[Rfam]
Rfam assigns this 111-nucleotide RNA sequence from Tepidibacillus decaturensis to the family "Molybdenum/Tungsten riboswitch aptamer (Moco RNA motif)". The match comes from Rfam's covariance-model search (60 bits). A reference for the family is Regulski et al. (2008), "in molybdenum cofactor and tungsten cofactor metabolism", Mol Microbiol.
RNA sequence: UAAAUAUGUUGUCCCCGAGCUGCAUUGUCCCCCUGGGAGAAUGUAGCCGCUGGGUGUAAAAAGCAAUUUUUACGCCUUCCGCUUUUGAAAAGGGGGCCUUCUUAAUCCAAG
Numbered sequence: 001u002a003a004a005u006a007u008g009u010u011g012u013c014c015c016c017g018a019g020c021u022g023c024a025u026u027g028u029c030c031c032c033c034u035g036g037g038a039g040a041a042u043g044u045a046g047c048c049g050c051u052g053g054g055u056g057u058a059a060a061a062a063g064c065a066a067u068u069u070u071u072a073c074g075c076c077u078u079c080c081g082c083u084u085u086u087g088a089a090a091a092g093g094g095g096g097c098c099u100u101c102u103u104a105a106u107c108c109a110a111g
Stems, first nucleotide, its partner, number of pairs: 006102001011097006019047008028038004052077011078088002